[Rfam]
RNA sequence: ACUUUCCUUGUCAUGGGGUGGUAUGGGAAACUCAAUGAACGCAUAGUGAGAGUUCCCCUGCUAACACCAUAUCAACACAUACGCACCACCUGAGCUUUUUGUUCAGGCCCUGGUGCAAUUUUUGGAAAC
Numbered sequence: 001a002c003u004u005u006c007c008u009u010g011u012c013a014u015g016g017g018g019u020g021g022u023a024u025g026g027g028a029a030a031c032u033c034a035a036u037g038a039a040c041g042c043a044u045a046g047u048g049a050g051a052g053u054u055c056c057c058c059u060g061c062u063a064a065c066a067c068c069a070u071a072u073c074a075a076c077a078c079a080u081a082c083g084c085a086c087c088a089c090c091u092g093a094g095c096u097u098u099u100u101g102u103u104c105a106g107g108c109c110c111u112g113g114u115g116c117a118a119u120u121u122u123u124g125g126a127a128a129c
Base pairs, nucleotide, nucleotide: 006018007017008016009015021061022060023059026056027055028054030053031052032051033050039047040046083116084115085114086113087112088111089107090106091105092104093103094102
This 129-nucleotide RNA sequence from Mastacembelus armatus belongs to the Rfam family "U4atac minor spliceosomal RNA". The family's consensus secondary structure is taken from published work. About the family: U4atac is an essential component of the minor U12-type spliceosome complex which is required for removal of the rarer class of eukaryotic introns (AT-AC, U12-type). It scores 100 bits against the family's covariance model. The family's RNA type in Rfam is spliceosomal small nuclear RNA. Gene Ontology terms of the family: pre-mRNA 5'-splice site binding, spliceosomal tri-snRNP complex assembly and mRNA 5'-splice site recognition. For this family Rfam cites "Evolutionary conservation of minor U12-type spliceosome between plants and humans" (Lorkovic et al., RNA, 2005).